[Rfam]
RNA: Purine riboswitch aptamer
RNA sequence: UGUCAAAAAUAAAUAUCCUCUCAUAUAAUUUCCGAAAUAUGGUCGGGAAGUUUCUACCGGGCAACCGUAAAUUGUCUGACUAUGGGUGAAAUUUAUCUAAGU
Number, nucleotide and partner (000 for none) at each position: 001u000002g000003u000004c000005a000006a000007a000008a000009a000010u000011a000012a000013a000014u000015a000016u000017c000018c088019u000020c086021u085022c084023a083024u082025a081026u000027a000028a000029u049030u048031u047032c046033c045034g044035a043036a000037a000038u000039a000040u000041g000042g000043u035044c034045g033046g032047g031048a030049a029050g000051u000052u000053u000054c000055u000056a000057c000058c078059g077060g076061g075062c074063a073064a072065c000066c000067g000068u000069a000070a000071a000072u064073u063074g062075u061076c060077u059078g058079a000080c000081u025082a024083u023084g022085g021086g020087u000088g018089a000090a000091a000092u000093u000094u000095a000096u000097c000098u000099a000100a000101g000102u000